A member of the RNA family "TPP riboswitch aptamer (THI element)" from Alkaliphilus peptidifermentans, 102 nucleotides long. Rfam's curators write: Vitamin B(1) in its active form thiamin pyrophosphate (TPP) is an essential coenzyme that is synthesised by coupling of pyrimidine and thiazole moieties in bacteria. The base pairs follow the family's consensus structure, which is taken from published work. The match comes from Rfam's covariance-model search (82 bits). The source organism's lineage runs through Bacteria, Bacillati, Natronincolaceae, Alkaliphilus and Alkaliphilus peptidifermentans.
[Rfam]
RNA sequence: AUAACCAGCUAGGGGUGCCCAAUGGGGCUGAGAAGGUAAAUUACCUAACCCUCUGAACCUGAUGUAGUUUAUACUACCGUAGGGAAGCCUAAUAAUUUAUAU
Numbered sequence: 001a002u003a004a005c006c007a008g009c010u011a012g013g014g015g016u017g018c019c020c021a022a023u024g025g026g027g028c029u030g031a032g033a034a035g036g037u038a039a040a041u042u043a044c045c046u047a048a049c050c051c052u053c054u055g056a057a058c059c060u061g062a063u064g065u066a067g068u069u070u071a072u073a074c075u076a077c078c079g080u081a082g083g084g085a086a087g088c089c090u091a092a093u094a095a096u097u098u099a100u101a102u
Stems, first nucleotide, its partner, number of pairs: 008088003011052004017028004035045004058083004064077004